The family of this 97-nucleotide RNA from Nocardioides baekrokdamisoli is "Glycine riboswitch aptamer". Pairs were carried over by alignment from the consensus structure. Taxonomically the source falls in Nocardioides (Bacteria, Bacillati, Actinomycetes, Nocardioidaceae).

RNA sequence: GACACCCGUGCGGGAGAGCUCCAGUCGCAGGACGUAGGAGCGCCGAAGGGGCAAUUCCUCCCCGGAACCUCUCAGGCACCAGGACCGUACGGGCAUU
Numbered sequence: 001g002a003c004a005c006c007c008g009u010g011c012g013g014g015a016g017a018g019c020u021c022c023a024g025u026c027g028c029a030g031g032a033c034g035u036a037g038g039a040g041c042g043c044c045g046a047a048g049g050g051g052c053a054a055u056u057c058c059u060c061c062c063c064g065g066a067a068c069c070u071c072u073c074a075g076g077c078a079c080c081a082g083g084a085c086c087g088u089a090c091g092g093g094c095a096u097u
Base pairs, nucleotide, nucleotide: 006092007091008090009089010088011087012086013085019040020039021038022037042077043076044075045073046072049071050070051069055065056064
Dot-bracket structure: .....((((((((.....((((..............)))).(((((..(((...((.......))...))))).))).......)))))))).....